[Rfam]
RNA sequence: CCUCCAGGCCCCGUCUCCCAACCCUGUACCAUGGCGUGCGGCCCCUGGUACAGGCAUGGGAGGCAGGGCCUGGGGG
Dot-bracket structure: .........((..(((((...((..((((((..............)))))).))....)))))..)).........